[Rfam]
RNA sequence: GAGGGUUUGGCCCCUCGGAGUCGCCCUGUGGGGGGAGGCUUCAAACCGCCACCUGCUGCGUUGGCUGAAGACCGUCGUGGUGAGCGAGGUGGAAAAGGCGCUGUUCAAGUGUCAGGU
Numbered sequence: 001g002a003g004g005g006u007u008u009g010g011c012c013c014c015u016c017g018g019a020g021u022c023g024c025c026c027u028g029u030g031g032g033g034g035g036a037g038g039c040u041u042c043a044a045a046c047c048g049c050c051a052c053c054u055g056c057u058g059c060g061u062u063g064g065c066u067g068a069a070g071a072c073c074g075u076c077g078u079g080g081u082g083a084g085c086g087a088g089g090u091g092g093a094a095a096a097g098g099c100g101c102u103g104u105u106c107a108a109g110u111g112u113c114a115g116g117u
Stems, first nucleotide, its partner, number of pairs: 001016005017042006024035004047116001049092006055081002058078003062074003097113006
Notes:
The family of this 117-nucleotide RNA from Plantactinospora sp. KBS50 is "Group II catalytic intron D1-D4-2". A reference for the family is Bonen and Vogel (2001), "The ins and outs of group II introns", Trends Genet. Group II introns are found in rRNA, tRNA and mRNA of organelles in fungi, plants and protists, and also in mRNA in bacteria.